Rfam assigns this 193-nucleotide RNA from Branchiostoma belcheri to the family "Small nucleolar RNA SNORA53". Its family is annotated with RNA processing and nucleolus in the Gene Ontology. Rfam's curators write: The snoRNA ACA53 belongs to the H/ACA family of pseudouridylation guide snoRNAs. A search with the family's covariance model found it, with a score of 95 bits.

[Rfam]
Nucleotides: 193
Stems, first nucleotide, its partner, number of pairs: 002091007011079005019073008028041002031038001043060006105188005113180001115178004125172008136162001138160001139158001141153003
Number, partner (000 for none) and nucleotide at each position: 001000u002091a003090c004089a005088c006087a007086c008085u009000u010000c011079c012078u013077u014076a015075g016000a017000u018000c019073c020072a021071c022070u023069c024068c025067u026066g027000g028041g029040g030000c031038c032000g033000a034000g035000u036000c037000g038031g039000u040029c041028c042000a043060g044059c045058a046057a047056c048055g049000u050000u051000g052000c053000c054000g055048c056047g057046u058045u059044g060043u061000a062000c063000c064000g065000u066026c067025g068024g069023g070022a071021g072020u073019g074000c075015c076014u077013g078012a079011g080000u081000c082000a083000u084000g085008g086007g087006u088005g089004u090003g091002u092000g093000a094000g095000a096000g097000c098000a099000g100000u101000a102000c103000a104000c105188c106187u107186c108185c109184a110000c111000u112000g113180u114000u115178a116177g117176c118175c119000u120000c121000a122000a123000a124000c125172c126171c127170c128169a129168g130167u131166a132165c133000a134000g135000c136162u137000c138160g139158g140000a141153a142152g143151g144000g145000c146000u147000c148000u149000c150000c151143c152142c153141u154000a155000c156000u157000g158139c159000u160138u161000c162136a163000c164000u165132g166131u167130a168129c169128u170127g171126g172125g173000u174000a175118g176117g177116c178115u179000g180113g181000c182000g183000g184109u185108g186107g187106g188105g189000a190000c191000a192000c193000a